Rfam assigns this 202-nucleotide RNA sequence from Nocardia gamkensis to the family "Actinobacteria sRNA Ms_IGR-5". Pairs were carried over by alignment from the consensus structure. A reference for the family is Li et al. (2013), "Identification of small RNAs in Mycobacterium smegmatis using heterologous Hfq", RNA.

RNA sequence: ACACGAGGAAGGAGGUGGUUCGACGAAUGGAUAUUCAUAGGACACGUGAGGUGGCUGUCCGCUAGCGCCACCGCUGCAGGUGGAUUUCGCCCGCGCGAGCGCUGAGCGAAUUCCAGGCAGUCACCCGGCCCCCGAGCCCCGGUCUGUCCGACCGGACCCGUGCGAUGAGAGUCGCACCGGUAUGGCUCGGGGGCUGUUCCGC
Numbered sequence: 001a002c003a004c005g006a007g008g009a010a011g012g013a014g015g016u017g018g019u020u021c022g023a024c025g026a027a028u029g030g031a032u033a034u035u036c037a038u039a040g041g042a043c044a045c046g047u048g049a050g051g052u053g054g055c056u057g058u059c060c061g062c063u064a065g066c067g068c069c070a071c072c073g074c075u076g077c078a079g080g081u082g083g084a085u086u087u088c089g090c091c092c093g094c095g096c097g098a099g100c101g102c103u104g105a106g107c108g109a110a111u112u113c114c115a116g117g118c119a120g121u122c123a124c125c126c127g128g129c130c131c132c133c134g135a136g137c138c139c140c141g142g143u144c145u146g147u148c149c150g151a152c153c154g155g156a157c158c159c160g161u162g163c164g165a166u167g168a169g170a171g172u173c174g175c176a177c178c179g180g181u182a183u184g185g186c187u188c189g190g191g192g193g194c195u196g197u198u199c200c201g202c
Base pairs, nucleotide, nucleotide: 014059015058016057017056018055019054060108061107062106063104064103065102066101067100068099072095073094074093126196127195128194129193130192131191132190133189134188135187136186137185138184139155140154141153142152143151

The family's RNA type in Rfam is small RNA. The organism belongs to Nocardia, within Bacteria.